Small nucleolar RNA U49: a 69-nucleotide sequence from Centaurea solstitialis.
[Rfam]
RNA sequence: UUCCGAUGAGGAAGAAUUCCCCAAUAAAGAUAGGAAGUGCCGUAUGACACUCUAAACAGCGGCGGAUUA
Numbered sequence: 001u002u003c004c005g006a007u008g009a010g011g012a013a014g015a016a017u018u019c020c021c022c023a024a025u026a027a028a029g030a031u032a033g034g035a036a037g038u039g040c041c042g043u044a045u046g047a048c049a050c051u052c053u054a055a056a057c058a059g060c061g062g063c064g065g066a067u068u069a
Stems, first nucleotide, its partner, number of pairs: 014063001034053001036051004
It is annotated as a C/D-box small nucleolar RNA. The family is grouped with related families in Rfam's "SNORD49 clan". Taxonomically the source falls in Centaurea (Eukaryota, Streptophytina, Embryophyta, Cardueae). A search with the family's covariance model found it, with a score of 54 bits. The base pairs follow the family's consensus structure, which was predicted with CMfinder.